The family of this 109-nucleotide RNA sequence from Varanus komodoensis is "Small nucleolar RNA U6-53/MBII-28". For this family Rfam cites "RNomics: an experimental approach that identifies 201 candidates for novel, small, non-messenger RNAs in mouse" (Huttenhofer et al., EMBO J, 2001). Pairs were carried over by alignment from the consensus structure.

RNA sequence: CACCUGUGAUGACUAGCCAUGCUAAUACCGAGCCGCCGAGCGGAGCCUUUGGCUCUGAACCCGGGCGUCCAUGAGUUAAGUUUGCUUCUCAAAGGAAGGCCUGAGGUGU
Numbered sequence: 001c002a003c004c005u006g007u008g009a010u011g012a013c014u015a016g017c018c019a020u021g022c023u024a025a026u027a028c029c030g031a032g033c034c035g036c037c038g039a040g041c042g043g044a045g046c047c048u049u050u051g052g053c054u055c056u057g058a059a060c061c062c063g064g065g066c067g068u069c070c071a072u073g074a075g076u077u078a079a080g081u082u083u084g085c086u087u088c089u090c091a092a093a094g095g096a097a098g099g100c101c102u103g104a105g106g107u108g109u
Stems, first nucleotide, its partner, number of pairs: 001108004041057005
NCBI's taxonomy places the organism under Eukaryota, Metazoa, Eumetazoa, Squamata, Varanus.